[Rfam]
RNA sequence: AGAUUGGACCAACUCUCAAAGUAUAUACUAAUCCCUUUUAUAAAGGGGUUUAUAGUUUUUGAAUAAUGCAUCUUAGCCCUUCU
Numbered sequence: 001a002g003a004u005u006g007g008a009c010c011a012a013c014u015c016u017c018a019a020a021g022u023a024u025a026u027a028c029u030a031a032u033c034c035c036u037u038u039u040a041u042a043a044a045g046g047g048g049u050u051u052a053u054a055g056u057u058u059u060u061g062a063a064u065a066a067u068g069c070a071u072c073u074u075a076g077c078c079c080u081u082c083u
Stems, first nucleotide, its partner, number of pairs: 009076001011074002016062004025053002031049008
A member of the RNA family "Stem loopII regulatory element in POLB" from Diabrotica balteata, 83 nucleotides long. The literature on the family includes a 2007 paper in Nucleic Acids Res by Sarnowska et al., "Hairpin structure within the 3'UTR of DNA polymerase beta mRNA acts as a post-transcriptional regulatory element and interacts with Hax-1". NCBI's taxonomy places the organism under Eukaryota, Panarthropoda, Cucujiformia, Diabroticites, Diabrotica. The family's consensus secondary structure is taken from published work.